Rfam assigns this 67-nucleotide RNA sequence from Peribacillus saganii to the family "Bacillaceae-1 RNA". Rfam 15.1 lists 5,721 matches to the family in 247 species.
RNA sequence: GACAAAGGAAGAACCGCUAACUUCGCCACAUCCUGUGGCAGCGCCGUUCUGGCCCACAUCGUGUGGG
Numbered sequence: 001g002a003c004a005a006a007g008g009a010a011g012a013a014c015c016g017c018u019a020a021c022u023u024c025g026c027c028a029c030a031u032c033c034u035g036u037g038g039c040a041g042c043g044c045c046g047u048u049c050u051g052g053c054c055c056a057c058a059u060c061g062u063g064u065g066g067g
Stems, first nucleotide, its partner, number of pairs: 011049004016044002025039005053067005